Background:
This 85-nucleotide RNA from Ensete ventricosum belongs to the Rfam family "Small nucleolar RNA SNORD25". The family's RNA type in Rfam is C/D-box small nucleolar RNA. The family's consensus secondary structure was predicted with PFOLD.

RNA sequence: GACAAUAAUGAUGAGCCUAUAGACUUAUAAUGAUUAUUUCUGAUAUGAUUGCAUAAUCAAAGAACAUAUAAUGGACUGCGUUGUC
Numbered sequence: 001g002a003c004a005a006u007a008a009u010g011a012u013g014a015g016c017c018u019a020u021a022g023a024c025u026u027a028u029a030a031u032g033a034u035u036a037u038u039u040c041u042g043a044u045a046u047g048a049u050u051g052c053a054u055a056a057u058c059a060a061a062g063a064a065c066a067u068a069u070a071a072u073g074g075a076c077u078g079c080g081u082u083g084u085c
Stems, first nucleotide, its partner, number of pairs: 002084005
Dot-bracket structure: .(((((.........................................................................))))).